[Rfam]
Nucleotides: 075
Stems, first nucleotide, its partner, number of pairs: 001075003005071001007069002010066002013063004018057014
Number, partner (000 for none) and nucleotide at each position: 001075a002074c003073a004000g005071g006000a007069c008068u009000a010066u011065g012000a013063c014062c015061u016060a017000u018057g019056a020055a021054u022053u023052g024051a025050c026049a027048g028047c029046c030045a031044g032000u033000c034000c035000u036000g037000c038000c039000a040000u041000g042000c043000c044031u045030u046029g047028g048027c049026u050025g051024u052023c053022a054021g055020u056019u057018c058000u059000g060016u061015a062014g063013g064000g065011c066010a067000c068008a069007g070000g071005u072000a073003u074002g075001u